[Rfam]
RNA: Mammalian CPEB3 ribozyme
RNA sequence: AAUGCAAGUCUGAGGCCGUAGCAGAAGUGCUCAUGGGGUGGCCUGUCAGAUUCCAAUGAGUUUGUGAAUUGUGCU
Numbered sequence: 001a002a003u004g005c006a007a008g009u010c011u012g013a014g015g016c017c018g019u020a021g022c023a024g025a026a027g028u029g030c031u032c033a034u035g036g037g038g039u040g041g042c043c044u045g046u047c048a049g050a051u052u053c054c055a056a057u058g059a060g061u062u063u064g065u066g067a068a069u070u071g072u073g074c075u
Stems, first nucleotide, its partner, number of pairs: 014043004020075004025070002027039002047064007